[Rfam]
The record is a 199-nucleotide RNA from Cohnella abietis, which matches "FMN riboswitch aptamer (RFN element)" in Rfam. Rfam describes the family as follows. The RFN element is a highly conserved domain that is found frequently in the 5'-untranslated regions of prokaryotic mRNAs that encode for flavin mononucleotide (FMN) biosynthesis and transport proteins. Pairs were carried over by alignment from the consensus structure, which is taken from published work. Gene Ontology term of the family: FMN binding. The match comes from Rfam's covariance-model search (92 bits). Taxonomically the source falls in Cohnella (Bacteria, Bacillati, Bacilli, Caryophanales).
RNA sequence: GCUUACCUUCGGGGCGGGGCGUAAUUCCCCACCGGCGGUGAUCGGCAGUGGAACCUGAAGUAUGCCAGCAGGCAUAUGAGUUCCCAGCCGUCAGUCCGUGACCCGUAAUCGCUUCUUCCGGAUAACCGGCGGGCGUGAUUCGGUGGACCUGGUGAAAUUCCGGGACCGACAGUGAAAGUCUGGAUGGGAGAAGGAAGCA
Numbered sequence: 001g002c003u004u005a006c007c008u009u010c011g012g013g014g015c016g017g018g019g020c021g022u023a024a025u026u027c028c029c030c031a032c033c034g035g036c037g038g039u040g041a042u043c044g045g046c047a048g049u050g051g052a053a054c055c056u057g058a059a060g061u062a063u064g065c066c067a068g069c070a071g072g073c074a075u076a077u078g079a080g081u082u083c084c085c086a087g088c089c090g091u092c093a094g095u096c097c098g099u100g101a102c103c104c105g106u107a108a109u110c111g112c113u114u115c116u117u118c119c120g121g122a123u124a125a126c127c128g129g130c131g132g133g134c135g136u137g138a139u140u141c142g143g144u145g146g147a148c149c150u151g152g153u154g155a156a157a158u159u160c161c162g163g164g165a166c167c168g169a170c171a172g173u174g175a176a177a178g179u180c181u182g183g184a185u186g187g188g189a190g191a192a193g194g195a196a197g198c199a
Base pairs, nucleotide, nucleotide: 003197004196006194007193008192009191010190017029018028019027031179032178033168034167035099036098037097038096103143104142148164149163150162151161152160170182171181172180